[Rfam]
RNA sequence: AAUAGAAGGAAGGAGCUCCCUUCAGUCCAAGCACAGAAAAAGAGGGGAUGUAAAACUAUCUCCCGCAUCAUUCACACAAUCACAGUAGGAAAAGAAUAUCCAUUCCCCUUUUUUCUACUAGUGCUUGAAUGAAUGAGUCGGCAGCUAAUUCAAUCCCUUUCUCCUAUCCAUGAGUGGGCUGAAGGAAGCUCUCUCCCACCAUUAA
Numbered sequence: 001a002a003u004a005g006a007a008g009g010a011a012g013g014a015g016c017u018c019c020c021u022u023c024a025g026u027c028c029a030a031g032c033a034c035a036g037a038a039a040a041a042g043a044g045g046g047g048a049u050g051u052a053a054a055a056c057u058a059u060c061u062c063c064c065g066c067a068u069c070a071u072u073c074a075c076a077c078a079a080u081c082a083c084a085g086u087a088g089g090a091a092a093a094g095a096a097u098a099u100c101c102a103u104u105c106c107c108c109u110u111u112u113u114u115c116u117a118c119u120a121g122u123g124c125u126u127g128a129a130u131g132a133a134u135g136a137g138u139c140g141g142c143a144g145c146u147a148a149u150u151c152a153a154u155c156c157c158u159u160u161c162u163c164c165u166a167u168c169c170a171u172g173a174g175u176g177g178g179c180u181g182a183a184g185g186a187a188g189c190u191c192u193c194u195c196c197c198a199c200c201a202u203u204a205a
Stems, first nucleotide, its partner, number of pairs: 013191005019185002023181007036168001060144002063141003069135004077127003
RNA: MIR159 microRNA precursor family